[Rfam]
RNA sequence: GCCCUGAAUAGAAAGAGGGCACACUCUCCGCAAAAAGGAGGGCCGAAGAACGCAUAACUUCAGAAAUCAAACAAAAUAUGGCAAAUUUAGUAG
Number, nucleotide and partner (000 for none) at each position: 001g020002c019003c018004c017005u016006g000007a000008a000009u000010a000011g000012a000013a000014a000015g000016a005017g004018g003019g002020c001021a000022c000023a000024c000025u041026c040027u039028c038029c037030g000031c000032a000033a000034a000035a000036a000037g029038g028039a027040g026041g025042g000043c063044c000045g061046a060047a059048g058049a000050a000051c000052g000053c000054a000055u000056a000057a000058c048059u047060u046061c045062a000063g043064a000065a000066a000067u000068c000069a000070a000071a000072c000073a000074a088075a087076a086077u085078a000079u083080g000081g000082c000083a079084a000085a077086u076087u075088u074089a000090g000091u000092a000093g000
RNA: engA RNA